Rfam assigns this 91-nucleotide RNA sequence from Streptomyces sp. BA2 to the family "dauA ncRNA motif". Rfam's curators write: dauA ncRNA motif was reported as a strong cis regulatory motif candidate, with potential to be a cis regulatory riboswitch type, it have been identified in genomes of the genus Streptomyces. The base pairs follow the family's consensus structure, which is taken from published work. Rfam links the family to the GO term regulation of gene expression. A reference for the family is Narunsky et al. (2024), "The discovery of novel noncoding RNAs in 50 bacterial genomes", Nucleic Acids Res.
RNA sequence: CUGCCUCUGCCGGGCCCGUCCCAAGAGGAACCGGGAGCCCGAUUCCCCUGCGUGACUCUGUCCGGCGGAUCUCUGGAACUGAGGCGUCAUG
Numbered sequence: 001c002u003g004c005c006u007c008u009g010c011c012g013g014g015c016c017c018g019u020c021c022c023a024a025g026a027g028g029a030a031c032c033g034g035g036a037g038c039c040c041g042a043u044u045c046c047c048c049u050g051c052g053u054g055a056c057u058c059u060g061u062c063c064g065g066c067g068g069a070u071c072u073c074u075g076g077a078a079c080u081g082a083g084g085c086g087u088c089a090u091g
Stems, first nucleotide, its partner, number of pairs: 002086004010065004018056003026049002028045003032041003068080001